Background:
Enterobacterial sRNA STnc410: a 158-nucleotide sequence. The family's consensus secondary structure was predicted with CMfinder. By type it is a small RNA.
RNA sequence: AGGAUAAAUUGUUCAAUAACGGAUUAUCCCCGCUGACGAAAGUGCCAUUUUCGACCAUCGUCACGCCUUUUGUCUGCAGAACAUUCAGGCAGUACCUUCAUUUAAGCGUACGGUGCAUGUCGUCGCUCUAAUUUCGAUCAAUGAAUAACGGGGAAACA
Numbered sequence: 001a002g003g004a005u006a007a008a009u010u011g012u013u014c015a016a017u018a019a020c021g022g023a024u025u026a027u028c029c030c031c032g033c034u035g036a037c038g039a040a041a042g043u044g045c046c047a048u049u050u051u052c053g054a055c056c057a058u059c060g061u062c063a064c065g066c067c068u069u070u071u072g073u074c075u076g077c078a079g080a081a082c083a084u085u086c087a088g089g090c091a092g093u094a095c096c097u098u099c100a101u102u103u104a105a106g107c108g109u110a111c112g113g114u115g116c117a118u119g120u121c122g123u124c125g126c127u128c129u130a131a132u133u134u135c136g137a138u139c140a141a142u143g144a145a146u147a148a149c150g151g152g153g154a155a156a157c158a
Stems, first nucleotide, its partner, number of pairs: 002029006010021001012019001036073002039070002044066002087097002
Dot-bracket structure: .((((((..(.(......).)..))))))......((.((...((...................))..)).)).............((.......)).............................................................